[Rfam]
RNA: MIR1120/MIR1122 microRNA precursor family
Organism: Triticum aestivum
RNA sequence: AUACUCCCUCCGUCCCAUAAUAUAAGAUCGUUUUGCAAGCUGUUUUUAGCUUGUAAAACGAUCUUAUAUUAUGAGACGGAGGGAGUAU
Dot-bracket structure: ..(((.(((((.((.((.(((((((((((((((((((((((......))))))))))))))))))))))).)).)).))))).)))..